A member of the RNA family "Small nucleolar RNA SNORD25" from Cucumis sativus, 85 nucleotides long. The family's RNA type in Rfam is C/D-box small nucleolar RNA.
[Rfam]
RNA sequence: CUUGACGGUGAUGAGUCUAUCAGACCUGUUAUGAUUUGCGAAUAUGAUCGCAAUCUAUAAUGAACAUCUAAGGGACUGAGUUGCU
Numbered sequence: 001c002u003u004g005a006c007g008g009u010g011a012u013g014a015g016u017c018u019a020u021c022a023g024a025c026c027u028g029u030u031a032u033g034a035u036u037u038g039c040g041a042a043u044a045u046g047a048u049c050g051c052a053a054u055c056u057a058u059a060a061u062g063a064a065c066a067u068c069u070a071a072g073g074g075a076c077u078g079a080g081u082u083g084c085u
Stems, first nucleotide, its partner, number of pairs: 003083004
Dot-bracket structure: ..((((.........................................................................))))..